[Rfam]
RNA: glmS glucosamine-6-phosphate activated ribozyme aptamer
RNA sequence: GGAAUCACAAAAGCGCCUGAACUAAGUCUGGUCGAGAAUGGCUUAGUUGACGAGGAGGAGGUUUAUCGAAUGUUCGGCGGAUACCUCCCGGCUGAAGUGCACAGCCGCAGUAAUUCCAAUUUUAAAACAGUGGGGCAACCUACUGCACAAAGGAUUGGGGAUGCACAAUG
Numbered sequence: 001g002g003a004a005u006c007a008c009a010a011a012a013g014c015g016c017c018u019g020a021a022c023u024a025a026g027u028c029u030g031g032u033c034g035a036g037a038a039u040g041g042c043u044u045a046g047u048u049g050a051c052g053a054g055g056a057g058g059a060g061g062u063u064u065a066u067c068g069a070a071u072g073u074u075c076g077g078c079g080g081a082u083a084c085c086u087c088c089c090g091g092c093u094g095a096a097g098u099g100c101a102c103a104g105c106c107g108c109a110g111u112a113a114u115u116c117c118a119a120u121u122u123u124a125a126a127a128c129a130g131u132g133g134g135g136c137a138a139c140c141u142a143c144u145g146c147a148c149a150a151a152g153g154a155u156u157g158g159g160g161a162u163g164c165a166c167a168a169u170g
Stems, first nucleotide, its partner, number of pairs: 020048008057088005066077004089107006114160007128145007